The record is a 74-nucleotide RNA from Desulfallas thermosapovorans, which matches "tRNA" in Rfam.
A search with the family's covariance model found it, with a score of 64 bits.
NCBI's taxonomy places the organism under Bacteria, Bacillati, Bacillota, Desulfallas, Desulfallas thermosapovorans.
The base pairs follow the family's consensus structure, which is taken from published work.
[Rfam]
RNA sequence: GGCGGCGUAGCUCAGAUGGUCAGAGCAUGCGGUUCAUACCCGCAGUGUCCGGGGUUCAAAUCCCUGCGCCGCUA
Dot-bracket structure: (((((((..((((.........)))).(((((.......))))).....(((((.......)))))))))))).